Description
Shown here is a 93-nucleotide sequence from Thiothrix eikelboomii, a member of the family "Selenocysteine transfer RNA".
RNA sequence: GGAAGGGUGGCAUACCCCGGUGGGAUGUCCAGACUUCAAAUCUGGGAGAGGCUGUCACACAGCUUCUGGUGGGUUCGACUCCCAUACCCUUCC
Numbered sequence: 001g002g003a004a005g006g007g008u009g010g011c012a013u014a015c016c017c018c019g020g021u022g023g024g025a026u027g028u029c030c031a032g033a034c035u036u037c038a039a040a041u042c043u044g045g046g047a048g049a050g051g052c053u054g055u056c057a058c059a060c061a062g063c064u065u066c067u068g069g070u071g072g073g074u075u076c077g078a079c080u081c082c083c084a085u086a087c088c089c090u091u092c093c
Stems, first nucleotide, its partner, number of pairs: 001093009011027003015024003028046006048066005070084004

The organism belongs to Thiothrix, within Bacteria. Pairs were carried over by alignment from the consensus structure, which is taken from published work.